[Rfam]
RNA sequence: GCCUAGCCCUGAUUGCAGUGGCAUCCUUUUUUGAUUUUUCUUCAAAAAAGAUAUAACGGAAAGCAGGUAUUAGC
Numbered sequence: 001g002c003c004u005a006g007c008c009c010u011g012a013u014u015g016c017a018g019u020g021g022c023a024u025c026c027u028u029u030u031u032u033g034a035u036u037u038u039u040c041u042u043c044a045a046a047a048a049a050g051a052u053a054u055a056a057c058g059g060a061a062a063g064c065a066g067g068u069a070u071u072a073g074c
Stems, first nucleotide, its partner, number of pairs: 009066003013062002018057002023052003028048007